[Rfam]
RNA sequence: GUGUAUGACAAUCAUUGGAGAAAUCCAUUUAGUAGAUAUGGUUACUUGAUGGAUACCGAAGAAGCAAGAAACAGAUUUAGCUCCGAAUCUGUUUCGAAACUUUCAGGUAAAGGUACAAUGAUUGGACACAACCCUGGAGAGACCCUACAUAAUUAUUAGGGCAUCGAAGAAGUAAUCUACUUAUGAAUAGUAAGUGGAGAAACUUUCAGAUAAAAGGACAGGGCA
Dot-bracket structure: (((......((((((((....(.((((((..................)))))))(((...((((...(((((((((((......)))))))))))....))).).))).......))))))))...)))..(((((....(.((((...........)))))(((...(.((..............................))..).))).......)))))..
Rfam assigns this 225-nucleotide sequence from Caldisalinibacter kiritimatiensis to the family "glycine-GGAnGA riboswitch aptamer". Its Rfam clan is "Glycine riboswitch clan". For this family Rfam cites "Bioinformatic analysis of riboswitch structures uncovers variant classes with altered ligand specificity" (Weinberg et al., Proc Natl Acad Sci U S A, 2017). Rfam's curators write: glycine-GGAnGA riboswitch is a variant of glycine riboswitch that have in common a U69A change. Gene Ontology term of the family: glycine biosynthetic process. The organism belongs to Caldisalinibacter, within Bacteria.